Annotation:
Rhodo-rpoB RNA: a 93-nucleotide RNA sequence.
[Rfam]
RNA sequence: GGUUCGGGAGCCGCGCGGUGGGACGUGCGGCACGAAUGGAACCUCAUCCCUGCAUUCGUAGGCCGCGCCUCGGGGGCCCCGACCCGUUGCGCG
Numbered sequence: 001g002g003u004u005c006g007g008g009a010g011c012c013g014c015g016c017g018g019u020g021g022g023a024c025g026u027g028c029g030g031c032a033c034g035a036a037u038g039g040a041a042c043c044u045c046a047u048c049c050c051u052g053c054a055u056u057c058g059u060a061g062g063c064c065g066c067g068c069c070u071c072g073g074g075g076g077c078c079c080c081g082a083c084c085c086g087u088u089g090c091g092c093g
Stems, first nucleotide, its partner, number of pairs: 001043005010031008064093005071086004